[Rfam]
RNA sequence: AUGGAUCCAUGAUGUUAUUUUACAUACUGCGUUAUCUAUCUGAACUUUCCCUUUCAAAAGGGGUUUUGAAGAUAACUUUUUUACUUGCUGAGAUCCCAU
Numbered sequence: 001a002u003g004g005a006u007c008c009a010u011g012a013u014g015u016u017a018u019u020u021u022a023c024a025u026a027c028u029g030c031g032u033u034a035u036c037u038a039u040c041u042g043a044a045c046u047u048u049c050c051c052u053u054u055c056a057a058a059a060g061g062g063g064u065u066u067u068g069a070a071g072a073u074a075a076c077u078u079u080u081u082u083a084c085u086u087g088c089u090g091a092g093a094u095c096c097c098a099u
Stems, first nucleotide, its partner, number of pairs: 001099002003096004
RNA: Small nucleolar RNA snoR27